[Rfam]
RNA sequence: ACAUGAUGAGCACACGAUGGAUGCCAUGGCGCUGCGUGCCGAGGAAGGACGGGGCACGGCACCGAUAUGCUCCGGGGAGCCGCGUGCAGGCUGUGAUCCGGAGGUCUCCGAAUGGGGCAACCCGCUGCCAUCUGGCAGCGCUCCGCAUGCGCGGAGCGGGAACCCGGCCAACUGAAACAUCUCAGUAGCCGGAGGAAGAGUGAACGACACCCGUAGUAGCGGCGAGCGAACCGGGUGAGGCCUAAACCGUGCGCGUGCCAAGGGGGCAGCCGUUGCGCGCACGGGGUUGGAGGACGACCCACGCCCAUCCUGCUCGAUGGGCCUCACGCGACCGCGUUCAGCAGAAGCAGUGUGGAACCCUGCACCAGAGAGCGUGAGAGUCGCGUAUGCGUGCGCCUCAGCGUGAGGGGUCGUUCCUGAGUAGGUCCGGGCACGAAGAACCCGGGCUGAAGCCGGGCAGACCACUGUCCAAGGCAAGCUACACGCAGUGACCGAUAGCGCACAGUACCGUGAGGGAACGGUGAAAAGUACCCCGGUGAGGGGAGUGAAAGAGACCCUGAAAUCGUGUGCUUCCACG
Numbered sequence: 001a002c003a004u005g006a007u008g009a010g011c012a013c014a015c016g017a018u019g020g021a022u023g024c025c026a027u028g029g030c031g032c033u034g035c036g037u038g039c040c041g042a043g044g045a046a047g048g049a050c051g052g053g054g055c056a057c058g059g060c061a062c063c064g065a066u067a068u069g070c071u072c073c074g075g076g077g078a079g080c081c082g083c084g085u086g087c088a089g090g091c092u093g094u095g096a097u098c099c100g101g102a103g104g105u106c107u108c109c110g111a112a113u114g115g116g117g118c119a120a121c122c123c124g125c126u127g128c129c130a131u132c133u134g135g136c137a138g139c140g141c142u143c144c145g146c147a148u149g150c151g152c153g154g155a156g157c158g159g160g161a162a163c164c165c166g167g168c169c170a171a172c173u174g175a176a177a178c179a180u181c182u183c184a185g186u187a188g189c190c191g192g193a194g195g196a197a198g199a200g201u202g203a204a205c206g207a208c209a210c211c212c213g214u215a216g217u218a219g220c221g222g223c224g225a226g227c228g229a230a231c232c233g234g235g236u237g238a239g240g241c242c243u244a245a246a247c248c249g250u251g252c253g254c255g256u257g258c259c260a261a262g263g264g265g266g267c268a269g270c271c272g273u274u275g276c277g278c279g280c281a282c283g284g285g286g287u288u289g290g291a292g293g294a295c296g297a298c299c300c301a302c303g304c305c306c307a308u309c310c311u312g313c314u315c316g317a318u319g320g321g322c323c324u325c326a327c328g329c330g331a332c333c334g335c336g337u338u339c340a341g342c343a344g345a346a347g348c349a350g351u352g353u354g355g356a357a358c359c360c361u362g363c364a365c366c367a368g369a370g371a372g373c374g375u376g377a378g379a380g381u382c383g384c385g386u387a388u389g390c391g392u393g394c395g396c397c398u399c400a401g402c403g404u405g406a407g408g409g410g411u412c413g414u415u416c417c418u419g420a421g422u423a424g425g426u427c428c429g430g431g432c433a434c435g436a437a438g439a440a441c442c443c444g445g446g447c448u449g450a451a452g453c454c455g456g457g458c459a460g461a462c463c464a465c466u467g468u469c470c471a472a473g474g475c476a477a478g479c480u481a482c483a484c485g486c487a488g489u490g491a492c493c494g495a496u497a498g499c500g501c502a503c504a505g506u507a508c509c510g511u512g513a514g515g516g517a518a519c520g521g522u523g524a525a526a527a528g529u530a531c532c533c534c535g536g537u538g539a540g541g542g543g544a545g546u547g548a549a550a551g552a553g554a555c556c557c558u559g560a561a562a563u564c565g566u567g568u569g570c571u572u573c574c575a576c577g
Stems, first nucleotide, its partner, number of pairs: 008572010023557001024521002028493002030490009039159002047109003050064003070103007079091003114123003124139006141156006163194001164192005174181002209236005219227002240475003247284011291418003295413005324406006334396003341390003347363004352359001366370001372384003424448008455470005508515002531543004
Source information
A member of the RNA family "Bacterial large subunit ribosomal RNA" from Chloroflexus aurantiacus, 577 nucleotides of a longer RNA. It is one of the family's seed sequences. Rfam links the family to the GO terms structural constituent of ribosome and ribosome. Its Rfam clan is "LSU clan". Taxonomically the source falls in Chloroflexus aurantiacus (Bacteria, Bacillati, Chloroflexia, Chloroflexineae).